A member of the RNA family "ZMP/ZTP riboswitch aptamer (pfl RNA motif)" from Brachybacterium vulturis, 78 nucleotides long. Lineage of the source: Bacteria > Actinomycetota > Actinomycetes > Micrococcales > Brachybacterium.
[Rfam]
RNA sequence: CUGGUUGCACACGACUGGCGAAGGUGGGGGACCACCGGGGAGUGACACGAGUGAGCAUCGACCGCCUGGGUGCCCACC
Numbered sequence: 001c002u003g004g005u006u007g008c009a010c011a012c013g014a015c016u017g018g019c020g021a022a023g024g025u026g027g028g029g030g031a032c033c034a035c036c037g038g039g040g041a042g043u044g045a046c047a048c049g050a051g052u053g054a055g056c057a058u059c060g061a062c063c064g065c066c067u068g069g070g071u072g073c074c075c076a077c078c
Base pairs, nucleotide, nucleotide: 004046005045010044011043012042015039016038017066018065019064020063024035025034026033027032055073056072057071058070059069

Source information:
Its family is annotated with one-carbon metabolic process and regulation of purine nucleotide biosynthetic process in the Gene Ontology.